Shown here is a 69-nucleotide RNA sequence from Aeromicrobium sp., a member of the family "Actino-pnp RNA". Pairs were carried over by alignment from the consensus structure, which is taken from published work.
RNA sequence: CUCGGUCCUCGGUAGUGGCCUUCGGACCCGCCUCAAGGCGGCUUCCGCGGGCCUCGAUCGACGACCGGC
Numbered sequence: 001c002u003c004g005g006u007c008c009u010c011g012g013u014a015g016u017g018g019c020c021u022u023c024g025g026a027c028c029c030g031c032c033u034c035a036a037g038g039c040g041g042c043u044u045c046c047g048c049g050g051g052c053c054u055c056g057a058u059c060g061a062c063g064a065c066c067g068g069c
Stems, first nucleotide, its partner, number of pairs: 002068006009061005017053005023047004030042003
Notes:
The match comes from Rfam's covariance-model search (60 bits). It is annotated as a cis-regulatory element.